The record is a 37-nucleotide RNA sequence from Aquimarina spongiae, which matches "DUF805b RNA" in Rfam. NCBI's taxonomy places the organism under Bacteria, Bacteroidota, Flavobacteriia, Flavobacteriales, Aquimarina.
[Rfam]
RNA sequence: AAGGAGGAAUCUGAAAAUCCUAAAAACAGAGUAAGAA
Numbered sequence: 001a002a003g004g005a006g007g008a009a010u011c012u013g014a015a016a017a018u019c020c021u022a023a024a025a026a027c028a029g030a031g032u033a034a035g036a037a
Stems, first nucleotide, its partner, number of pairs: 002021004010036003
Dot-bracket structure: .((((....[[[.....))))............]]].